[Rfam]
Rfam assigns this 93-nucleotide RNA from Asparagus officinalis to the family "mir-156 microRNA precursor family". The literature on the family includes a 2002 paper in Genes Dev by Reinhart et al., "MicroRNAs in plants". About the family: This family represents the plant microRNA (miRNA) precursor mir-156.
RNA sequence: AUGACAGAAGAGAGUGAGCACACAGCGGGCGAACUGCAUCAAUCAAGAGAAGGAAUGCUGUUGCUGUUGCGUGCUCACUGCUCUCUCUGUCAU
Dot-bracket structure: ((((((((.((((((((((((.((((((...................................)))))).))))))))).)))..))))))))
The organism belongs to Asparagus, within Eukaryota.